Rfam assigns this 412-nucleotide RNA sequence from Williamsia sp. 1138 to the family "Bacterial RNase P class A". The match comes from Rfam's covariance-model search (271 bits). Lineage of the source: Bacteria > Bacillati > Actinomycetes > Mycobacteriales > Williamsia.

RNA sequence: CGAGCCGGCCGGGCGGCCGCGAUCGUGGGAACAGUCGCUUCAAAGCGCACCUGCCCACGGUCGAGGAAAGUCCGGACUCCACAGAGCAGGGUGGUUGCCAACAGCAACCCGGGGUGACCCGCGGGACAGUGCCACAGAAAACAGACCGCCGGUGCAAGUCGGUAAGGGUGAAACGGUGCGGUAAGAGCGCACCAGCACCACGGGUGACCGUGGUGGCUCGGUAAACCCCACCCGGAGCAAGGUCGAAGGCCGCACCCAACCGGUGCGGCUGCGCAGGCGUUCGAGGGCUGCUCGCCCGAGCCUGCGGGUGGACCGCUCGAGGUACCCGGUGACGGUGUGCCCAGAUGGAUGGCCGCUACCGCCCACCGUGAGGUGGGCGGCACAGGAUCCGGCUUACAGGUCGGCUCGUUCG
Dot-bracket structure: ((((((((((((((((((.(((((((((..........................)))))))))....[[[.[[[[[((((...[[[[.((((((((((.....)))))(((((....)))).)((...(((((............((((((((....))))))..)).......((((((.......)))))).(((((((((....)))))))).)..)))..)))))))))))))...((((............................((((((......((((.]]]]))))..)))))).....))))......(....(((....)))....)..........)))))))..............................]]]]]]]].).))))))))))....
It is annotated as a ribozyme.